[Rfam]
RNA sequence: GGUCACGAGACCGGCGCGAGGGCCCUGGCUCGCCGGUCGGCAACCCUCCGCGCGGUGGGUGCCUCCAGGUGCAGACCUGGCCGGGCGGACGGCGUCCGGCAAGUGCGAGGU
Numbered sequence: 001g002g003u004c005a006c007g008a009g010a011c012c013g014g015c016g017c018g019a020g021g022g023c024c025c026u027g028g029c030u031c032g033c034c035g036g037u038c039g040g041c042a043a044c045c046c047u048c049c050g051c052g053c054g055g056u057g058g059g060u061g062c063c064u065c066c067a068g069g070u071g072c073a074g075a076c077c078u079g080g081c082c083g084g085g086c087g088g089a090c091g092g093c094g095u096c097c098g099g100c101a102a103g104u105g106c107g108a109g110g111u
Stems, first nucleotide, its partner, number of pairs: 001077004009038007021030002039063003044059003048055002080100008
Description
The family of this 111-nucleotide sequence from Cellulomonas chitinilytica is "SAM (S-adenosyl methionine) riboswitch aptamer". Rfam links the family to the GO terms regulation of gene expression and S-adenosylmethionine metabolic process. Rfam's curators write: SAM-IV is a mRNA element that regulates gene expression via direct sensing of S-adenosylmethionine (SAM or AdoMet). SAM-IV riboswitches share conserved nucleotide positions with the previously described SAM-I riboswitches sequence analysis and molecular recognition experiments suggest that SAM-I and SAM-IV riboswitches share similar ligand binding sites, but have different scaffolds. The family's consensus secondary structure is taken from published work. NCBI's taxonomy places the organism under Bacteria, Bacillati, Micrococcales, Cellulomonadaceae, Cellulomonas.